[Rfam]
RNA: Small nucleolar RNA SNORA47
Organism: Eleutherodactylus coqui
RNA sequence: UGGAGGCAUGAGAAGGUGGAGCGGUCCCCUGUACUGCCUCCUACUGGUUAUAUCCUCCUACAGUAACAAUGCGGGUGCUCACCCACUUCUGCUUCUGGGAAGUGACUUCAGCAUUUU
Numbered sequence: 001u002g003g004a005g006g007c008a009u010g011a012g013a014a015g016g017u018g019g020a021g022c023g024g025u026c027c028c029c030u031g032u033a034c035u036g037c038c039u040c041c042u043a044c045u046g047g048u049u050a051u052a053u054c055c056u057c058c059u060a061c062a063g064u065a066a067c068a069a070u071g072c073g074g075g076u077g078c079u080c081a082c083c084c085a086c087u088u089c090u091g092c093u094u095c096u097g098g099g100a101a102g103u104g105a106c107u108u109c110a111g112c113a114u115u116u117u
Stems, first nucleotide, its partner, number of pairs: 002058005015045004019039001021037005070113003075109001079105002085103005092097001